RNA sequence: UGCUAUGAUGUCGUAAUUUGCGUCUUACUCCACAUCAUGCGACAGUUGCCUGCUGUCAUUAAGCUGGUGUGGGUGACUGACGAAUAUCGCGUUCUGAGCA
Numbered sequence: 001u002g003c004u005a006u007g008a009u010g011u012c013g014u015a016a017u018u019u020g021c022g023u024c025u026u027a028c029u030c031c032a033c034a035u036c037a038u039g040c041g042a043c044a045g046u047u048g049c050c051u052g053c054u055g056u057c058a059u060u061a062a063g064c065u066g067g068u069g070u071g072g073g074u075g076a077c078u079g080a081c082g083a084a085u086a087u088c089g090c091g092u093u094c095u096g097a098g099c100a
Base pairs, nucleotide, nucleotide: 001100002099003098021082022081023080024079030072031071032070033069034068039064040063041057042056043055044054045053
Annotation: This 100-nucleotide RNA belongs to the Rfam family "Small nucleolar RNA SNORD16". For this family Rfam cites "RNomics: an experimental approach that identifies 201 candidates for novel, small, non-messenger RNAs in mouse" (Huttenhofer et al., EMBO J, 2001). The base pairs follow the family's consensus structure, which was predicted with PFOLD. Rfam 15.1 lists 1,321 matches to the family in 655 species. The family's RNA type in Rfam is C/D-box small nucleolar RNA. Clan: SNORD16 clan.